About this RNA:
Small nucleolar RNA Z152/R70/R12/: an 89-nucleotide sequence from Carex littledalei. A search with the family's covariance model found it, with a score of 57 bits. The base pairs follow the family's consensus structure, which was predicted with PFOLD. NCBI's taxonomy places the organism under Eukaryota, Viridiplantae, Magnoliopsida, commelinids, Carex subgen. Euthyceras.

RNA sequence: GGUGCUAGGAUGAUUUUAAAAUUGGUUUGGCUAGAGGCGAUCAGCCGUGAGCUUAAAACCAAAAACGACUUCUCCUUCUUCUGAGCCCC
Dot-bracket structure: ((.((...............................................................................)).))
Numbered sequence: 001g002g003u004g005c006u007a008g009g010a011u012g013a014u015u016u017u018a019a020a021a022u023u024g025g026u027u028u029g030g031c032u033a034g035a036g037g038c039g040a041u042c043a044g045c046c047g048u049g050a051g052c053u054u055a056a057a058a059c060c061a062a063a064a065a066c067g068a069c070u071u072c073u074c075c076u077u078c079u080u081c082u083g084a085g086c087c088c089c
Stems, first nucleotide, its partner, number of pairs: 001089002004086002
It is annotated as a C/D-box small nucleolar RNA.